[Rfam]
The family of this 170-nucleotide RNA from Paenibacillus anaericanus is "FMN riboswitch aptamer (RFN element)".
The source organism's lineage runs through Bacteria, Bacillati, Bacilli, Paenibacillaceae and Paenibacillus.

RNA sequence: GCAAUCCUUCGGGGAGGGGUGAGAUUCCCUACCGACGGUGAUGGCAUAUCUUGGAUUAAACUAUCAAGGUAUGCAUGAGUCCGUGACCUGUAUGUGGCUUUUCAUGUGCAUAUGGCUGAGCCGGUGUGAUUCCGGGACCGACAGUAUAGUCUGGAUGGGAGAAGGAGAAC
Numbered sequence: 001g002c003a004a005u006c007c008u009u010c011g012g013g014g015a016g017g018g019g020u021g022a023g024a025u026u027c028c029c030u031a032c033c034g035a036c037g038g039u040g041a042u043g044g045c046a047u048a049u050c051u052u053g054g055a056u057u058a059a060a061c062u063a064u065c066a067a068g069g070u071a072u073g074c075a076u077g078a079g080u081c082c083g084u085g086a087c088c089u090g091u092a093u094g095u096g097g098c099u100u101u102u103c104a105u106g107u108g109c110a111u112a113u114g115g116c117u118g119a120g121c122c123g124g125u126g127u128g129a130u131u132c133c134g135g136g137a138c139c140g141a142c143a144g145u146a147u148a149g150u151c152u153g154g155a156u157g158g159g160a161g162a163a164g165g166a167g168a169a170c
Stems, first nucleotide, its partner, number of pairs: 005166006017029003031150002033140002035084004088115006121135004142153003
Dot-bracket structure: ....((((((......(((.......))).[[((((((..........................................))))...((((((................)))))).....((((.......))))...)).(((....]]))).......))))))....